[Rfam]
The record is an 83-nucleotide RNA sequence from Myotis davidii, which matches "mir-574 microRNA precursor family" in Rfam. The source organism's lineage runs through Eukaryota, Eumetazoa, Deuterostomia, Eutheria and Myotis. A reference for the family is Lui et al. (2007), "Patterns of known and novel small RNAs in human cervical cancer", Cancer Res.
RNA sequence: AGGUCUGCAGAGAGAGAAGCAGGGUCUGAUCCACAGCCUCUGUGGCAGCCAUUUAUCAGCUGUUGCCUCUCUCUUUCUCUCCA
Numbered sequence: 001a002g003g004u005c006u007g008c009a010g011a012g013a014g015a016g017a018a019g020c021a022g023g024g025u026c027u028g029a030u031c032c033a034c035a036g037c038c039u040c041u042g043u044g045g046c047a048g049c050c051a052u053u054u055a056u057c058a059g060c061u062g063u064u065g066c067c068u069c070u071c072u073c074u075u076u077c078u079c080u081c082c083a
Base pairs, nucleotide, nucleotide: 010075011074012073013072014071015070016069017068019066020065021064022063024061026059027058028057029056030055036049037048

The base pairs follow the family's consensus structure, which was predicted with RNAalifold. Rfam links the family to the GO terms RISC complex and miRNA-mediated post-transcriptional gene silencing. The match comes from Rfam's covariance-model search (81 bits).